The record is a 125-nucleotide RNA sequence from Treponema pedis, which matches "TD-1 RNA" in Rfam. Taxonomically the source falls in Treponema pedis (Bacteria, Spirochaetia, Treponemataceae, Treponema). It is annotated as a cis-regulatory element. Pairs were carried over by alignment from the consensus structure, which is taken from published work.
RNA sequence: AUAAACUUUCAGUUUUGCUUAAAAGCAAAACUGAAUUAUUAUUGCCGUUUCUCAUUGCAUUGCGAAACGGCGAAAAUUCAUCAAUACUCGAUUUUUGAUAAAAUCUGCGUUUGAUGAAUUUAUAU
Numbered sequence: 001a002u003a004a005a006c007u008u009u010c011a012g013u014u015u016u017g018c019u020u021a022a023a024a025g026c027a028a029a030a031c032u033g034a035a036u037u038a039u040u041a042u043u044g045c046c047g048u049u050u051c052u053c054a055u056u057g058c059a060u061u062g063c064g065a066a067a068c069g070g071c072g073a074a075a076a077u078u079c080a081u082c083a084a085u086a087c088u089c090g091a092u093u094u095u096u097g098a099u100a101a102a103a104u105c106u107g108c109g110u111u112u113g114a115u116g117a118a119u120u121u122a123u124a125u
Base pairs, nucleotide, nucleotide: 012031013030014029015028016027017026018025019024044071045070046069047068048067049066050065051064076119077118078117079116080115081114082113083112084111086110087109090105091104092103093102094101095100